[Rfam]
RNA sequence: GUGAAUCUCAUUGCAGCUGCUGACCACUGCACAAGAUUAGAUUAUGACUCUUGUGCGUGUGACAACGGCUAUUGUGGGCAUUCCGAGUCAUCCA
Numbered sequence: 001g002u003g004a005a006u007c008u009c010a011u012u013g014c015a016g017c018u019g020c021u022g023a024c025c026a027c028u029g030c031a032c033a034a035g036a037u038u039a040g041a042u043u044a045u046g047a048c049u050c051u052u053g054u055g056c057g058u059g060u061g062a063c064a065a066c067g068g069c070u071a072u073u074g075u076g077g078g079c080a081u082u083c084c085g086a087g088u089c090a091u092c093c094a
Stems, first nucleotide, its partner, number of pairs: 007078005015070005021064002024061001025059002028057006035050002
The family of this 94-nucleotide sequence from Aedes aegypti is "mir-210 microRNA precursor family". A reference for the family is Cai et al. (2005), "Kaposi's sarcoma-associated herpesvirus expresses an array of viral microRNAs in latently infected cells", Proc Natl Acad Sci U S A. Gene Ontology terms of the family: RISC complex and miRNA-mediated post-transcriptional gene silencing. The source organism's lineage runs through Eukaryota, Pancrustacea, Insecta, Endopterygota and Stegomyia. The base pairs follow the family's consensus structure, which was predicted with WAR.